[Rfam]
Shown here is a 61-nucleotide sequence from Varanus komodoensis, a member of the family "Small nucleolar RNA SNORD75". The family has 5 seed sequences and 767 matches in Rfam 15.1. For this family Rfam cites "Purified box C/D snoRNPs are able to reproduce site-specific 2'-O-methylation of target RNA in vitro" (Galardi et al., Mol Cell Biol, 2002). The family's consensus secondary structure was predicted with RNAalifold. Its family is annotated with RNA processing and nucleolus in the Gene Ontology. Rfam classes the family as a C/D-box small nucleolar RNA.
RNA sequence: AGCCAAUGAUGUUUUAAGAGUAGUGGACAGAACAGUUUUCUGAAAACCUUACACUGAGGCU
Number, nucleotide and partner (000 for none) at each position: 001a061002g060003c059004c058005a000006a000007u000008g000009a000010u000011g000012u000013u000014u000015u000016a000017a000018g000019a000020g000021u000022a000023g000024u000025g000026g000027a000028c000029a000030g000031a000032a000033c000034a000035g000036u000037u000038u000039u000040c000041u000042g000043a000044a000045a000046a000047c000048c000049u000050u000051a000052c000053a000054c000055u000056g000057a000058g004059g003060c002061u001